[Rfam]
RNA: mir-29 microRNA precursor family
RNA sequence: GGAAUCUGGUUUCCUGUGGUGGUUUAGAUGUGUGUUCCAGUGUCUAGCACCAUUUGAAAUCAGUGUUCC
Numbered sequence: 001g002g003a004a005u006c007u008g009g010u011u012u013c014c015u016g017u018g019g020u021g022g023u024u025u026a027g028a029u030g031u032g033u034g035u036u037c038c039a040g041u042g043u044c045u046a047g048c049a050c051c052a053u054u055u056g057a058a059a060u061c062a063g064u065g066u067u068c069c
Base pairs, nucleotide, nucleotide: 001069002068003067004066006063007062008061009060010059011058012057013056016053017052018051019050020049021048025046026045027044028043